[Rfam]
RNA: MIR5070 microRNA precursor family
RNA sequence: CAGGGUACCCUUUGACCCUUCUAAGUUCAACCAAAUGAAUUAAAAUUUUAAAAUGACAUAACUUUUUUAAAAAUAGUUCAUUUGUUUGAACUAACGAGGGUCACAGGGUAUCCUG
Numbered sequence: 001c002a003g004g005g006u007a008c009c010c011u012u013u014g015a016c017c018c019u020u021c022u023a024a025g026u027u028c029a030a031c032c033a034a035a036u037g038a039a040u041u042a043a044a045a046u047u048u049u050a051a052a053a054u055g056a057c058a059u060a061a062c063u064u065u066u067u068u069a070a071a072a073a074u075a076g077u078u079c080a081u082u083u084g085u086u087u088g089a090a091c092u093a094a095c096g097a098g099g100g101u102c103a104c105a106g107g108g109u110a111u112c113c114u115g
Stems, first nucleotide, its partner, number of pairs: 002114010013103008022094001024092007032084011